[Rfam]
RNA sequence: AUACAUCUUCAGGGCAGGGUGCAAUUCCCUACCGGUGGUAUAGCCCACAAACCGUAAGGUACGAUUCGGUGAAACUCCGAAGCCGACAGUAAAGUCUGGAUGGAAGAAGAUUUUA
Dot-bracket structure: ..(.((((((......(((.......))).[[((((((....[[))))....(.....).....(((((.......)))))]])).(((....]]))).......)))))).)..
Numbered sequence: 001a002u003a004c005a006u007c008u009u010c011a012g013g014g015c016a017g018g019g020u021g022c023a024a025u026u027c028c029c030u031a032c033c034g035g036u037g038g039u040a041u042a043g044c045c046c047a048c049a050a051a052c053c054g055u056a057a058g059g060u061a062c063g064a065u066u067c068g069g070u071g072a073a074a075c076u077c078c079g080a081a082g083c084c085g086a087c088a089g090u091a092a093a094g095u096c097u098g099g100a101u102g103g104a105a106g107a108a109g110a111u112u113u114u115a
Stems, first nucleotide, its partner, number of pairs: 003113001005111006017029003031095002033085002035048004043083002053059001065081005087098003
The family of this 115-nucleotide RNA from Anaerocolumna chitinilytica is "FMN riboswitch aptamer (RFN element)". On this family, see Vitreschak et al., Nucleic Acids Res 2002: "Regulation of riboflavin biosynthesis and transport genes in bacteria by transcriptional and translational attenuation".